The family of this 141-nucleotide RNA from Triticum turgidum is "Small nucleolar RNA F1/F2/snoR5a". Rfam links the family to the GO terms RNA processing and nucleolus. The base pairs follow the family's consensus structure, which was predicted with PFOLD. This family contains F1, F2 and snoR5a sequences, all of which are members of the the H/ACA class of snoRNA that guide the sites of modification of uridines to pseudouridines.

RNA sequence: AAAUGCCAUCUGGUAUCUGACACUUGGUCAUUUUUUGUGAUUCUGUGUCUUGAAACAUGGCUGAAAAUGAGGGGGAAUGGAAUUUUGCGACACUUGCUGCUCCUAAUGACCCUCCUAGUUACUAUAUACCCAUUUACAUUA
Numbered sequence: 001a002a003a004u005g006c007c008a009u010c011u012g013g014u015a016u017c018u019g020a021c022a023c024u025u026g027g028u029c030a031u032u033u034u035u036u037g038u039g040a041u042u043c044u045g046u047g048u049c050u051u052g053a054a055a056c057a058u059g060g061c062u063g064a065a066a067a068u069g070a071g072g073g074g075g076a077a078u079g080g081a082a083u084u085u086u087g088c089g090a091c092a093c094u095u096g097c098u099g100c101u102c103c104u105a106a107u108g109a110c111c112c113u114c115c116u117a118g119u120u121a122c123u124a125u126a127u128a129c130c131c132a133u134u135u136a137c138a139u140u141a
Stems, first nucleotide, its partner, number of pairs: 005061005019049005026042004076134005092119003096115001099112001101109001